[Rfam]
RNA sequence: AAUCUUUAUACAUAAGGCACCUCGUUAAUUUAGUUUAGUGAUAUUUAUUAAAUUAUACGAAAGGGCCUUAUUUUUUUAAAGUAUUUCAAUGUAAAAUUACAUAUAAAUACAAAGUAUUUUGGCGAGACUCUUGAGGGAACAGGACAAGCUGAAGACUACAGGCUGAAGCUGUCCCCUAAGAAAGCGAGCCAACAAUACGUAGU
Numbered sequence: 001a002a003u004c005u006u007u008a009u010a011c012a013u014a015a016g017g018c019a020c021c022u023c024g025u026u027a028a029u030u031u032a033g034u035u036u037a038g039u040g041a042u043a044u045u046u047a048u049u050a051a052a053u054u055a056u057a058c059g060a061a062a063g064g065g066c067c068u069u070a071u072u073u074u075u076u077u078a079a080a081g082u083a084u085u086u087c088a089a090u091g092u093a094a095a096a097u098u099a100c101a102u103a104u105a106a107a108u109a110c111a112a113a114g115u116a117u118u119u120u121g122g123c124g125a126g127a128c129u130c131u132u133g134a135g136g137g138a139a140c141a142g143g144a145c146a147a148g149c150u151g152a153a154g155a156c157u158a159c160a161g162g163c164u165g166a167a168g169c170u171g172u173c174c175c176c177u178a179a180g181a182a183a184g185c186g187a188g189c190c191a192a193c194a195a196u197a198c199g200u201a202g203u
Stems, first nucleotide, its partner, number of pairs: 022041007042065001044063003048060002050054001083203003087199001091100003102111001104109001114198005119192005129181004134177004139172002142169001147164004
About this RNA: The record is a 203-nucleotide sequence from Rhodanobacter spathiphylli, which matches "S. aureus tsr24 small RNA" in Rfam. A search with the family's covariance model found it, with a score of 89 bits. For this family Rfam cites "Genome-wide Annotation, Identification, and Global Transcriptomic Analysis of Regulatory or Small RNA Gene Expression in Staphylococcus aureus" (Carroll et al., MBio, 2016). Lineage of the source: Bacteria > Pseudomonadati > Gammaproteobacteria > Rhodanobacteraceae > Rhodanobacter spathiphylli.